[Rfam]
This 120-nucleotide RNA from Vibrio sp. 10N.286.49.B3 belongs to the Rfam family "Ribosomal S15 leader". Rfam describes the family as follows. The E. coli Ribosomal S15 gene 5' UTR can form two alternative structures. One that is a series of three hairpins, The other includes a pseudoknot. On this family, see Benard et al., Biochimie 1996: "Pseudoknot and translational control in the expression of the S15 ribosomal protein". It is annotated as a cis-regulatory leader.

RNA sequence: CGUAGCGGCUGAAUCAGAGAUUGGCGCUACAUAUUUAAACUUACUCUUAUUUAGGAGAGAUUUAUGUCUCUGAAUGCAGAAACUAAAGCAGCAAUCGUUGCUGAAUACGCACAAUCUGAA
Numbered sequence: 001c002g003u004a005g006c007g008g009c010u011g012a013a014u015c016a017g018a019g020a021u022u023g024g025c026g027c028u029a030c031a032u033a034u035u036u037a038a039a040c041u042u043a044c045u046c047u048u049a050u051u052u053a054g055g056a057g058a059g060a061u062u063u064a065u066g067u068c069u070c071u072g073a074a075u076g077c078a079g080a081a082a083c084u085a086a087a088g089c090a091g092c093a094a095u096c097g098u099u100g101c102u103g104a105a106u107a108c109g110c111a112c113a114a115u116c117u118g119a120a
Stems, first nucleotide, its partner, number of pairs: 008025005051074002054071004